[Rfam]
The record is a 78-nucleotide sequence from Chinchilla lanigera, which matches "Small nucleolar RNA SNORD74" in Rfam. It is annotated as a C/D-box small nucleolar RNA. On this family, see Galardi et al., Mol Cell Biol 2002: "Purified box C/D snoRNPs are able to reproduce site-specific 2'-O-methylation of target RNA in vitro". Rfam 15.1 lists 929 matches to the family in 615 species. The base pairs follow the family's consensus structure, which was predicted with PFOLD. A search with the family's covariance model found it, with a score of 85 bits.
RNA sequence: GUGCCCUGCUAGUGAUGAAGCUUGAGUUGGUAGGGACAUCUGAGUGCUGAUGAACGCCAACGGCUCUGAUGGCGGCGC
Numbered sequence: 001g002u003g004c005c006c007u008g009c010u011a012g013u014g015a016u017g018a019a020g021c022u023u024g025a026g027u028u029g030g031u032a033g034g035g036a037c038a039u040c041u042g043a044g045u046g047c048u049g050a051u052g053a054a055c056g057c058c059a060a061c062g063g064c065u066c067u068g069a070u071g072g073c074g075g076c077g078c
Base pairs, nucleotide, nucleotide: 001078002077003076004075005074